Tryptophan operon leader: a 103-nucleotide RNA sequence from Serratia marcescens.
By type it is a cis-regulatory leader.
Pairs were carried over by alignment from the consensus structure, which is taken from published work.
The literature on the family includes a 1982 paper in Annu Rev Genet by Kolter and Yanofsky, "Attenuation in amino acid biosynthetic operons".
RNA sequence: CACGGUUGGUGGCGUACCUCCCUCUUGCGGGCGGUGUAAUCGCGCAUAGCUGUCAUCUGACAAUGCAGAUUUCCUGGCCCGCACCUGAUGCGGGCUUUUUUAU
Numbered sequence: 001c002a003c004g005g006u007u008g009g010u011g012g013c014g015u016a017c018c019u020c021c022c023u024c025u026u027g028c029g030g031g032c033g034g035u036g037u038a039a040u041c042g043c044g045c046a047u048a049g050c051u052g053u054c055a056u057c058u059g060a061c062a063a064u065g066c067a068g069a070u071u072u073c074c075u076g077g078c079c080c081g082c083a084c085c086u087g088a089u090g091c092g093g094g095c096u097u098u099u100u101u102a103u
Stems, first nucleotide, its partner, number of pairs: 009043004014037005020031003076096007